Shown here is a 177-nucleotide sequence from Vagococcus salmoninarum, a member of the family "Listeria sRNA rli28".
The match comes from Rfam's covariance-model search (107 bits).
The base pairs follow the family's consensus structure, which was predicted with RNAalifold.
[Rfam]
RNA sequence: UAUUUUGUGUUAUGGUAAUGAAGUAGAAAAGUGAAAGAUGGUGGCUAAUUUCUUAAAAAGGGAGUGAUGCCUAUGAUUAGAGCUGUGACUCCUAGAAAGGUCUAGCAUGUCGGUAUACGAAACAUUGACAGUGGCAAUAAGUUUUGCCAUGUUAGUGCUUACGGUAUUGAAAUUUAA
Numbered sequence: 001u002a003u004u005u006u007g008u009g010u011u012a013u014g015g016u017a018a019u020g021a022a023g024u025a026g027a028a029a030a031g032u033g034a035a036a037g038a039u040g041g042u043g044g045c046u047a048a049u050u051u052c053u054u055a056a057a058a059a060g061g062g063a064g065u066g067a068u069g070c071c072u073a074u075g076a077u078u079a080g081a082g083c084u085g086u087g088a089c090u091c092c093u094a095g096a097a098a099g100g101u102c103u104a105g106c107a108u109g110u111c112g113g114u115a116u117a118c119g120a121a122a123c124a125u126u127g128a129c130a131g132u133g134g135c136a137a138u139a140a141g142u143u144u145u146g147c148c149a150u151g152u153u154a155g156u157g158c159u160u161a162c163g164g165u166a167u168u169g170a171a172a173u174u175u176a177a
Stems, first nucleotide, its partner, number of pairs: 041150005060093006069086002109129003113125002116122001156171001158169001